[Rfam]
RNA sequence: CUUCAUGAUGAUUCGCACAAACAAAGCAUAGUUCAUCCGAGCGUCUUUGGACGGCUGAGGACAACCGAUACCAUCUUUCACCCCUAUCUGAUG
Numbered sequence: 001c002u003u004c005a006u007g008a009u010g011a012u013u014c015g016c017a018c019a020a021a022c023a024a025a026g027c028a029u030a031g032u033u034c035a036u037c038c039g040a041g042c043g044u045c046u047u048u049g050g051a052c053g054g055c056u057g058a059g060g061a062c063a064a065c066c067g068a069u070a071c072c073a074u075c076u077u078u079c080a081c082c083c084c085u086a087u088c089u090g091a092u093g
Stems, first nucleotide, its partner, number of pairs: 006020001009017002032059004042053004